[Rfam]
RNA sequence: CGCGUAUUUUGCGAUGGCGGAGUUCGACCGCAGGUCGAAGUGAUGGUCAAGUUCAUUGAUGACCAUCGCGGUGCGCAUGGGGUCGAACCGAUCUGCGAGACACUGCCGAUUGCCCCU
Numbered sequence: 001c002g003c004g005u006a007u008u009u010u011g012c013g014a015u016g017g018c019g020g021a022g023u024u025c026g027a028c029c030g031c032a033g034g035u036c037g038a039a040g041u042g043a044u045g046g047u048c049a050a051g052u053u054c055a056u057u058g059a060u061g062a063c064c065a066u067c068g069c070g071g072u073g074c075g076c077a078u079g080g081g082g083u084c085g086a087a088c089c090g091a092u093c094u095g096c097g098a099g100a101c102a103c104u105g106c107c108g109a110u111u112g113c114c115c116c117u
Base pairs, nucleotide, nucleotide: 017031018030019029020028079116080115081114082113089112090111092109093108095106096105097104
About this RNA:
A member of the RNA family "ALIL pseudoknot" from Thioclava sp. SK-1, 117 nucleotides long. NCBI's taxonomy places the organism under Bacteria, Pseudomonadota, Alphaproteobacteria, Rhodobacterales, Thioclava.